Description
Rfam assigns this 112-nucleotide sequence from Mycolicibacterium smegmatis to the family "SAM (S-adenosyl methionine) riboswitch aptamer". The source organism's lineage runs through Bacteria, Actinomycetota, Mycobacteriales, Mycobacterium (subgen. Mycolicibacterium) and Mycolicibacterium smegmatis.
RNA sequence: CUUCACGAGACGCCGUCGACAAGCUCCGACUGGAUGGCGCGCCAACCCCACGCUCGUGGGUGGCUCGGAUGACGAAGCGGCCUGCACCACCCGGUGCGGGUAAGAGCGCCUC
Dot-bracket structure: ((((....(..((((((....((......)).)))))).)(((..(((.((....))))).))).........))))..(((((((((....)))))))))...........

The family is grouped with related families in Rfam's "SAM clan".